Ribosomal protein L20 leader: a 126-nucleotide sequence from Vallitalea pronyensis. Taxonomically the source falls in Vallitalea (Bacteria, Bacillati, Clostridia, Lachnospirales). Pairs were carried over by alignment from the consensus structure, which was predicted with CMfinder. For this family Rfam cites "Diverse mechanisms for regulating ribosomal protein synthesis in Escherichia coli" (Zengel and Lindahl, Prog Nucleic Acid Res Mol Biol, 1994). This family is a putative r-protein leader autoregulatory structure found in B. subtilis and other low-GC Gram-positive bacteria. The family's RNA type in Rfam is cis-regulatory leader.
[Rfam]
RNA sequence: GUAAACAAGUAGAAGUAUCCACUUCUCACCUUAGGGCAUAAGCUGCUAGGGUUCAUAUACGAAAGCAUGAUCGAUAUUGUGUGAGUAUUUUGAGUGGAUAUUUUAUAUGCACUUUUUUUGUUGUAU
Numbered sequence: 001g002u003a004a005a006c007a008a009g010u011a012g013a014a015g016u017a018u019c020c021a022c023u024u025c026u027c028a029c030c031u032u033a034g035g036g037c038a039u040a041a042g043c044u045g046c047u048a049g050g051g052u053u054c055a056u057a058u059a060c061g062a063a064a065g066c067a068u069g070a071u072c073g074a075u076a077u078u079g080u081g082u083g084a085g086u087a088u089u090u091u092g093a094g095u096g097g098a099u100a101u102u103u104u105a106u107a108u109g110c111a112c113u114u115u116u117u118u119u120g121u122u123g124u125a126u
Stems, first nucleotide, its partner, number of pairs: 011026006028052003033047002036043002093113004098108004